This 115-nucleotide RNA sequence from Aquarana catesbeiana belongs to the Rfam family "Small nucleolar RNA SNORD89".
RNA sequence: GCAGAGGAAUGAUGACAUAAAAGGCCGAAUUACAGUGCUGCCCUAAGCAGUUGGCUCUCUCAUUGGGUGGCAUGAUGACAAAAACCCCUGAAGCGAAACCUUAACUGACCUCUGC
Numbered sequence: 001g002c003a004g005a006g007g008a009a010u011g012a013u014g015a016c017a018u019a020a021a022a023g024g025c026c027g028a029a030u031u032a033c034a035g036u037g038c039u040g041c042c043c044u045a046a047g048c049a050g051u052u053g054g055c056u057c058u059c060u061c062a063u064u065g066g067g068u069g070g071c072a073u074g075a076u077g078a079c080a081a082a083a084a085c086c087c088c089u090g091a092a093g094c095g096a097a098a099c100c101u102u103a104a105c106u107g108a109c110c111u112c113u114g115c
Stems, first nucleotide, its partner, number of pairs: 001115007014105001024033001034102002037099001041095001042093001044091001046089002050073002054068004074087001
By type it is a C/D-box small nucleolar RNA. Rfam links the family to the GO terms RNA processing and nucleolus. The literature on the family includes a 2001 paper in EMBO J by Huttenhofer et al., "RNomics: an experimental approach that identifies 201 candidates for novel, small, non-messenger RNAs in mouse". The base pairs follow the family's consensus structure, which was predicted with RNAalifold. A search with the family's covariance model found it, with a score of 68 bits. The family has 18 seed sequences and 642 matches in Rfam 15.1.